[Rfam]
RNA sequence: AACUCGAUAGUAUGGUAGAAAAAUAGGAAUCUUUCUACCAUACUAUCUAUUAUUGUAAUGUAUAAAGAUACAAUA
Numbered sequence: 001a002a003c004u005c006g007a008u009a010g011u012a013u014g015g016u017a018g019a020a021a022a023a024u025a026g027g028a029a030u031c032u033u034u035c036u037a038c039c040a041u042a043c044u045a046u047c048u049a050u051u052a053u054u055g056u057a058a059u060g061u062a063u064a065a066a067g068a069u070a071c072a073a074u075a
Stems, first nucleotide, its partner, number of pairs: 006047016023030001
Shown here is a 75-nucleotide RNA sequence from Corchorus capsularis, a member of the family "Plastid-psbM 3UTR RNA".
A search with the family's covariance model found it, with a score of 75 bits.
Rfam's curators write: Plastid psbM is a non-coding RNA (ncRNA) recognised in plastids.
Pairs were carried over by alignment from the consensus structure, which was predicted with LocARNA.
Lineage of the source: Eukaryota > Magnoliopsida > Mesangiospermae > rosids > Corchorus.